[Rfam]
RNA sequence: UCGGCCUCCGGGCCGGCAUAGACGAUGACGGGGAACCCACCGGCACCCGCCGGAUCGCCGUAACCGUACGGCUUGGGGUGAAGCCGACUCCGGUCGGCCGGGCACCUGGCAGCCCGAACCCGGCAGCUGACCCCGUAGGCGCUCGUCAGGAAGGACUU
Dot-bracket structure: (((...................)))..((((((....((..................................))(((.....((((......))))..((((........))))...))).........))))))......................
Background: The record is a 158-nucleotide sequence from Austwickia chelonae, which matches "c-di-AMP riboswitch aptamer (ydaO/yuaA leader)" in Rfam. Rfam links the family to the GO terms regulation of gene expression and cyclic-di-AMP binding.